[Rfam]
RNA sequence: UGGCGGUGAUGACGAUCUUAGGACACCUUUGGAAUGACCGUGAAAUAAUCGUUUCUUGCUGAGCCAU
Numbered sequence: 001u002g003g004c005g006g007u008g009a010u011g012a013c014g015a016u017c018u019u020a021g022g023a024c025a026c027c028u029u030u031g032g033a034a035u036g037a038c039c040g041u042g043a044a045a046u047a048a049u050c051g052u053u054u055c056u057u058g059c060u061g062a063g064c065c066a067u
Stems, first nucleotide, its partner, number of pairs: 001066004
RNA: Small nucleolar RNA SNORD58